[Rfam]
RNA sequence: UUAUAGAGAGCAAAAGCUGUGUAAUUAUAUAUAUUUAAAUAUAUAUAAUUACACAGCUUUUGCUCUCUAUAA
Numbered sequence: 001u002u003a004u005a006g007a008g009a010g011c012a013a014a015a016g017c018u019g020u021g022u023a024a025u026u027a028u029a030u031a032u033a034u035u036u037a038a039a040u041a042u043a044u045a046u047a048a049u050u051a052c053a054c055a056g057c058u059u060u061u062g063c064u065c066u067c068u069a070u071a072a
Stems, first nucleotide, its partner, number of pairs: 003070005009064003013060002017056005024049006
The record is a 72-nucleotide RNA sequence from Salix purpurea, which matches "mir-965 microRNA precursor family" in Rfam. For this family Rfam cites "The regulation of silkworm fibroin L chain production by miRNA-965 and miRNA-1926 in insect cells" (Huang et al., Bioorg Khim, 2012). It scores 46 bits against the family's covariance model. Rfam links the family to the GO terms RISC complex and miRNA-mediated post-transcriptional gene silencing.